[Rfam]
RNA sequence: AGUUCUGCGCGUGACUGGCGUAAACAUGGAGACCCAUGAGGGAGCGCGCAGGAAUCAGCCGUACGCCUGGGCGAAGCAU
Dot-bracket structure: ..((((((((((..(([[[[[....((((....))))..))..))))))))))....(((..]]]]]..))).......